The family of this 60-nucleotide sequence from Salmo salar is "mir-205 microRNA precursor family". Pairs were carried over by alignment from the consensus structure, which was predicted with RNAalifold.

RNA sequence: UCCUUCAUUCCACCGGAGUCUGUGUCUUUAUUCAACCAGAUUUCUGUGAAAUGAAGUGUA
Numbered sequence: 001u002c003c004u005u006c007a008u009u010c011c012a013c014c015g016g017a018g019u020c021u022g023u024g025u026c027u028u029u030a031u032u033c034a035a036c037c038a039g040a041u042u043u044c045u046g047u048g049a050a051a052u053g054a055a056g057u058g059u060a
Stems, first nucleotide, its partner, number of pairs: 003056006011048003015044004020039003